[Rfam]
RNA sequence: GGAGGAAGACCAUCCGAAGUAUGCAUACAGGUGCAGACUUUUAACUACCUUAUUGUUCUGCGGUCAAAAGCCGUGGUGCUGUGCGAUGAGGCUAAAUCAAGGGUUACUCGUCAAGU
Numbered sequence: 001g002g003a004g005g006a007a008g009a010c011c012a013u014c015c016g017a018a019g020u021a022u023g024c025a026u027a028c029a030g031g032u033g034c035a036g037a038c039u040u041u042u043a044a045c046u047a048c049c050u051u052a053u054u055g056u057u058c059u060g061c062g063g064u065c066a067a068a069a070g071c072c073g074u075g076g077u078g079c080u081g082u083g084c085g086a087u088g089a090g091g092c093u094a095a096a097u098c099a100a101g102g103g104u105u106a107c108u109c110g111u112c113a114a115g116u
Base pairs, nucleotide, nucleotide: 001015002014003013005011016041017040018039019038020037023034024033025032026031048091049090050089051088052087053086055079058076059075061073062072063071064070106116107115
Dot-bracket structure: (((.(.....).)))(((((..((((....))))..)))))......((((((.(..((.((((.....)))).))..)......))))))..............((.......))
Rfam assigns this 116-nucleotide sequence from Candidatus Brocadiaceae bacterium S225 to the family "Group II catalytic intron D1-D4-2". A search with the family's covariance model found it, with a score of 59 bits. A reference for the family is Bonen and Vogel (2001), "The ins and outs of group II introns", Trends Genet.